[Rfam]
Mammalian CPEB3 ribozyme: a 76-nucleotide sequence from Alligator mississippiensis. It scores 64 bits against the family's covariance model.

RNA sequence: AGCUGCCAUAAUGGCCAUAGCAGAAGCGUUCACAAUGUGGCCCCUGUCAGAUUCCAGUGAAUCUGAGAAUUCUGCU
Numbered sequence: 001a002g003c004u005g006c007c008a009u010a011a012u013g014g015c016c017a018u019a020g021c022a023g024a025a026g027c028g029u030u031c032a033c034a035a036u037g038u039g040g041c042c043c044c045u046g047u048c049a050g051a052u053u054c055c056a057g058u059g060a061a062u063c064u065g066a067g068a069a070u071u072c073u074g075c076u
Stems, first nucleotide, its partner, number of pairs: 013042004019076007026038003048065007

NCBI's taxonomy places the organism under Eukaryota, Archelosauria, Archosauria, Alligatorinae, Alligator.